[Rfam]
RNA: TPP riboswitch aptamer (THI element)
RNA sequence: UUUCUACACUUGGGGGGCCCCGCAACGGGGCUGAGAGGCGCCGGGCGCCGACCCAUCGAACCUGAUCCGGCUCAUACCGGCGUAGGGAAGGGUAGAGCCGCAGGC
Dot-bracket structure: .....((.((((((.((((((.....)))))......((((...)))))..)))).....((((..((((......))))..))))..)).))............